[Rfam]
RNA sequence: CUGUCUCUUGUUUCAGCCGUGUUUGGACGGAACAC
Numbered sequence: 001c002u003g004u005c006u007c008u009u010g011u012u013u014c015a016g017c018c019g020u021g022u023u024u025g026g027a028c029g030g031a032a033c034a035c
Base pairs, nucleotide, nucleotide: 002034003033004032006031007030008029010028012027013026014025015024016023017021